[Rfam]
RNA sequence: UAACUCUGGCCUCUCUUCAUUACGAAUAAAUCUUUCGCCUUUUACUAAAGAUUUCCGUGGAGAGGGGCCUCUUAAUGAGUCUGAACUAAAUUUUUUGUCAGAGCCCUACCGUCAGGUGGGGA
Numbered sequence: 001u002a003a004c005u006c007u008g009g010c011c012u013c014u015c016u017u018c019a020u021u022a023c024g025a026a027u028a029a030a031u032c033u034u035u036c037g038c039c040u041u042u043u044a045c046u047a048a049a050g051a052u053u054u055c056c057g058u059g060g061a062g063a064g065g066g067g068c069c070u071c072u073u074a075a076u077g078a079g080u081c082u083g084a085a086c087u088a089a090a091u092u093u094u095u096u097g098u099c100a101g102a103g104c105c106c107u108a109c110c111g112u113c114a115g116g117u118g119g120g121g122a
Stems, first nucleotide, its partner, number of pairs: 003080004009068011028054008098122001104121006

This 122-nucleotide RNA sequence from Apolygus lucorum belongs to the Rfam family "U5 spliceosomal RNA". Lineage of the source: Eukaryota > Cimicoidea > Miridae > Mirinae > Apolygus. It is annotated as a spliceosomal small nuclear RNA.